[Rfam]
Record summary
Rfam assigns this 78-nucleotide sequence from Roseomonas acroporae to the family "Makes More Granules Regulator RNA (mmgR)". Rfam links the family to the GO terms response to nitrogen compound, protein binding and DNA-templated transcription, termination. The family is grouped with related families in Rfam's "suhB sRNA clan". The base pairs follow the family's consensus structure.

RNA sequence: UCUCUCUGCCGUGUGACUGGCGUUUCCUCCCUAAACUUGGGCCGUGCUCCAACGAGCACGGCCUUUUUUUAUGCCUGC
Dot-bracket structure: .......(((........)))..................(((((((((......)))))))))...............
Numbered sequence: 001u002c003u004c005u006c007u008g009c010c011g012u013g014u015g016a017c018u019g020g021c022g023u024u025u026c027c028u029c030c031c032u033a034a035a036c037u038u039g040g041g042c043c044g045u046g047c048u049c050c051a052a053c054g055a056g057c058a059c060g061g062c063c064u065u066u067u068u069u070u071a072u073g074c075c076u077g078c
Stems, first nucleotide, its partner, number of pairs: 008021003040063009

By type it is a small RNA.